[Rfam]
RNA sequence: AUUUAAGCAAAUCAUGUAAGUUCACAAUUGGUCAGUUUUGAUUGGUCAAUGAAAACAACAAUGCAUCUCAUCUUUUAUGGAGUUGACAUCCAAUCAUAACAUAACACGUGAUAGUCAUCAUCC
Numbered sequence: 001a002u003u004u005a006a007g008c009a010a011a012u013c014a015u016g017u018a019a020g021u022u023c024a025c026a027a028u029u030g031g032u033c034a035g036u037u038u039u040g041a042u043u044g045g046u047c048a049a050u051g052a053a054a055a056c057a058a059c060a061a062u063g064c065a066u067c068u069c070a071u072c073u074u075u076u077a078u079g080g081a082g083u084u085g086a087c088a089u090c091c092a093a094u095c096a097u098a099a100c101a102u103a104a105c106a107c108g109u110g111a112u113a114g115u116c117a118u119c120a121u122c123c
Base pairs, nucleotide, nucleotide: 020112022111023110024109029106032103036099037098039096041094042093043092044091045090

Record summary
MIR1520 microRNA precursor family: a 123-nucleotide sequence from Glycine soja. Rfam links the family to the GO terms RISC complex and miRNA-mediated post-transcriptional gene silencing. Clan: MIR1520 microRNA precursor clan.